A member of the RNA family "TPP riboswitch aptamer (THI element)" from Bacillus sp. V59.32b, 107 nucleotides long. Pairs were carried over by alignment from the consensus structure, which is taken from published work. Rfam describes the family as follows. Vitamin B(1) in its active form thiamin pyrophosphate (TPP) is an essential coenzyme that is synthesised by coupling of pyrimidine and thiazole moieties in bacteria. The organism belongs to Bacillus, within Bacteria.
[Rfam]
RNA sequence: UUUUACUACUAGGGGUGUCUUAUUCGUAAGGCUGAGAGAAAAGUGAUUUUCAACCCUUUGGACCUGAUCUGGAUUAUGCCAGCGUAGGAAAGUAGUCGGCAUAGAAC
Number, nucleotide and partner (000 for none) at each position: 001u000002u000003u000004u000005a000006c095007u094008a093009c092010u091011a057012g056013g055014g054015g000016u000017g032018u031019c030020u029021u028022a000023u000024u000025c000026g000027u000028a021029a020030g019031g018032c017033u000034g000035a000036g000037a000038g000039a050040a049041a048042a047043g000044u000045g000046a000047u042048u041049u040050u039051c000052a000053a000054c014055c013056c012057u011058u000059u000060g000061g000062a000063c088064c087065u086066g085067a000068u000069c082070u081071g080072g079073a000074u000075u000076a000077u000078g000079c072080c071081a070082g069083c000084g000085u066086a065087g064088g063089a000090a000091a010092g009093u008094a007095g006096u000097c000098g000099g000100c000101a000102u000103a000104g000105a000106a000107c000